The family of this 77-nucleotide sequence from Alligator mississippiensis is "Mammalian CPEB3 ribozyme". The base pairs follow the family's consensus structure, which is taken from published work. On this family, see Salehi-Ashtiani et al., Science 2006: "A genomewide search for ribozymes reveals an HDV-like sequence in the human CPEB3 gene". A search with the family's covariance model found it, with a score of 45 bits. About the family: The mammalian CPEB3 ribozyme is a self cleaving RNA located in the second intron of the CPEB3 gene which belongs to a family of genes regulating messenger RNA polyadenylation. This ribozyme is highly conserved and found only in mammals. The CPEB3 ribozyme is structurally and biochemically related to the human hepatitis delta virus (HDV) ribozyme and the HDV ribozyme is proposed to have arisen from the human transcriptome. Lineage of the source: Eukaryota > Metazoa > Bilateria > Sarcopterygii > Alligator.
RNA sequence: AGUCACAAGUUUAAGGCCAUAGCAGAAGUGCUUAUGGUGCAGCCAUGUCAGAUUCAAACAAAUCUGCAAAUUCUGCU
Dot-bracket structure: ..............[[[...((((((((((.......))).]]]....((((((......))))))....)))))))